[Rfam]
RNA sequence: GGCAAAGGCAUCAUUGAGUGCAGCGUUGAUGAACUCGGCAGUCAGGCACUGGUGGUUGCUUCACCAGCCCUGCACUCAAUGACGCCUUUG
Numbered sequence: 001g002g003c004a005a006a007g008g009c010a011u012c013a014u015u016g017a018g019u020g021c022a023g024c025g026u027u028g029a030u031g032a033a034c035u036c037g038g039c040a041g042u043c044a045g046g047c048a049c050u051g052g053u054g055g056u057u058g059c060u061u062c063a064c065c066a067g068c069c070c071u072g073c074a075c076u077c078a079a080u081g082a083c084g085c086c087u088u089u090g
Stems, first nucleotide, its partner, number of pairs: 006087004011082001013080011025068004030063003
The record is a 90-nucleotide RNA sequence from Eragrostis curvula, which matches "MIR397 microRNA precursor family" in Rfam. The base pairs follow the family's consensus structure, which was predicted with WAR. Rfam 15.1 lists 496 matches to the family in 218 species. The source organism's lineage runs through Eukaryota, Magnoliopsida, Mesangiospermae, Liliopsida and Eragrostis. On this family, see Wu et al., Plant Cell 2009: "Rice MicroRNA effector complexes and targets".